[Rfam]
RNA sequence: AAACCUUUUUAAAUUAGUCCAGUGAGGCUAGUAAGGGGAGUGGAGAUUUAGUUAUAAAUUUCUUAUUAGUUAUAACUAAAGUUUAUUUAGAUUAUCCAGCCUUCUUACUAGUAAGAAGGCUUUUAUAGU
Numbered sequence: 001a002a003a004c005c006u007u008u009u010u011a012a013a014u015u016a017g018u019c020c021a022g023u024g025a026g027g028c029u030a031g032u033a034a035g036g037g038g039a040g041u042g043g044a045g046a047u048u049u050a051g052u053u054a055u056a057a058a059u060u061u062c063u064u065a066u067u068a069g070u071u072a073u074a075a076c077u078a079a080a081g082u083u084u085a086u087u088u089a090g091a092u093u094a095u096c097c098a099g100c101c102u103u104c105u106u107a108c109u110a111g112u113a114a115g116a117a118g119g120c121u122u123u124u125a126u127a128g129u
Stems, first nucleotide, its partner, number of pairs: 004037005014031006048079010059068001098121010
The record is a 129-nucleotide RNA from Orenia metallireducens, which matches "PyrR binding site" in Rfam. By type it is a cis-regulatory element. Taxonomically the source falls in Orenia (Bacteria, Bacillota, Clostridia, Halanaerobiales). Pairs were carried over by alignment from the consensus structure, which is taken from published work.